[Rfam]
RNA sequence: AUUCCUUAAUCGCUUAAUCCUGAAACCAGGAGCGGGGGAACCAUCGGGAUGAAGGGAGCACUUCGUCGCUUCGUCCCAGGGGUGAAUCACUUGAUGAUGCAUCGAUUCGAGUGUAGGGAUACUUUCGGUCCCGAAUCCGUCAGCUAACCUCGUAAGCGUUAUGAAAGAGGAUUU
Numbered sequence: 001a002u003u004c005c006u007u008a009a010u011c012g013c014u015u016a017a018u019c020c021u022g023a024a025a026c027c028a029g030g031a032g033c034g035g036g037g038g039a040a041c042c043a044u045c046g047g048g049a050u051g052a053a054g055g056g057a058g059c060a061c062u063u064c065g066u067c068g069c070u071u072c073g074u075c076c077c078a079g080g081g082g083u084g085a086a087u088c089a090c091u092u093g094a095u096g097a098u099g100c101a102u103c104g105a106u107u108c109g110a111g112u113g114u115a116g117g118g119a120u121a122c123u124u125u126c127g128g129u130c131c132c133g134a135a136u137c138c139g140u141c142a143g144c145u146a147a148c149c150u151c152g153u154a155a156g157c158g159u160u161a162u163g164a165a166a167g168a169g170g171a172u173u174u
Stems, first nucleotide, its partner, number of pairs: 011158004018031003032153006042079001080138003088113007116132004

Rfam assigns this 174-nucleotide RNA from Paenibacillus albilobatus to the family "c-di-AMP riboswitch aptamer (ydaO/yuaA leader)". A search with the family's covariance model found it, with a score of 99 bits. About the family: This family represents a conserved RNA structure found upstream of the ydaO and yuaA genes in Bacillus subtilis and related genes in other bacteria.